[Rfam]
RNA: FMN riboswitch aptamer (RFN element)
RNA sequence: AUAGUUCUUCGGGGCAGGGUGCGAUUCCCUACCGGCGGUGAUAGUCCGCGACCCGCUUAUGGCGGCUGAUUUGGUGCAAUUCCAAAACCGACAGUAUAGUCUGGAUGAGAGAAGAAAUUG
Numbered sequence: 001a002u003a004g005u006u007c008u009u010c011g012g013g014g015c016a017g018g019g020u021g022c023g024a025u026u027c028c029c030u031a032c033c034g035g036c037g038g039u040g041a042u043a044g045u046c047c048g049c050g051a052c053c054c055g056c057u058u059a060u061g062g063c064g065g066c067u068g069a070u071u072u073g074g075u076g077c078a079a080u081u082c083c084a085a086a087a088c089c090g091a092c093a094g095u096a097u098a099g100u101c102u103g104g105a106u107g108a109g110a111g112a113a114g115a116a117a118u119u120g
Stems, first nucleotide, its partner, number of pairs: 003118001005116006017029003031100002033090002035049004044088002053065002070086005092103003